Nucleotides: 107
Base pairs, nucleotide, nucleotide: 013107014106015105016104017103018028030077031076042065043064045063046062047061051057052056081100082099083098084097085096086095087094088093
Number, partner (000 for none) and nucleotide at each position: 001000a002000c003000g004000u005000a006000u007000g008000a009000g010000a011000u012000a013107a014106a015105a016104g017103u018028c019000a020000g021000u022000c023000g024000a025000g026000c027000g028018g029000u030077g031076a032000u033000a034000a035000u036000g037000g038000g039000u040000a041000g042065a043064u044000c045063g046062u047061a048000a049000a050000g051057a052056c053000g054000c055000u056052g057051u058000a059000a060000a061047u062046a063045c064043a065042u066000g067000c068000c069000u070000g071000u072000a073000c074000g075000c076031u077030c078000g079000g080000c081100u082099u083098g084097c085096g086095c087094c088093a089000u090000c091000c092000a093088u094087g095086g096085c097084g098083c099082a100081a101000a102000c103017g104016c105015u106014u107013u
Notes
Shown here is a 107-nucleotide RNA sequence from Pectobacterium atrosepticum, a member of the family "Yersinia sRNA 224". Gene Ontology term of the family: response to temperature stimulus. Lineage of the source: Bacteria > Enterobacterales > Pectobacteriaceae > Pectobacterium > Pectobacterium atrosepticum. For this family Rfam cites "Transcriptomic profiling of Yersinia pseudotuberculosis reveals reprogramming of the Crp regulon by temperature and uncovers Crp as a master regulator of small RNAs" (Nuss et al., PLoS Genet, 2015). The match comes from Rfam's covariance-model search (71 bits).